Shown here is a 145-nucleotide sequence from Microbispora rosea, a member of the family "c-di-AMP riboswitch aptamer (ydaO/yuaA leader)". A search with the family's covariance model found it, with a score of 86 bits.
[Rfam]
Nucleotides: 145
Base pairs, nucleotide, nucleotide: 011130012129013128014127018032019031020030021029022028033125034124035123036122037121038120043054055110056109057108063087064086065085066084090104091103092102093101
Number, partner (000 for none) and nucleotide at each position: 001000a002000c003000c004000g005000u006000g007000g008000g009000g010000c011130c012129g013128c014127c015000g016000a017000a018032u019031c020030c021029g022028c023000g024000a025000u026000c027000a028022g029021c030020g031019g032018a033125a034124c035123c036122g037121g038120g039000g040000a041000c042000c043054c044000a045000c046000u047000u048000c049000u050000u051000u052000c053000c054043g055110g056109g057108g058000u059000g060000a061000a062000u063087c064086g065085g066084g067000a068000g069000c070000a071000g072000c073000c074000c075000c076000c077000a078000g079000a080000u081000g082000c083000g084066c085065c086064c087063g088000u089000a090104g091103g092102g093101c094000a095000c096000u097000u098000c099000c100000u101093g102092c103091c104090c105000g106000a107000a108057c109056c110055c111000g112000u113000c114000a115000g116000c117000u118000a119000a120038c121037c122036c123035g124034g125033u126000a127014g128013g129012c130011g131000g132000c133000a134000u135000g136000g137000a138000a139000g140000c141000a142000a143000g144000g145000a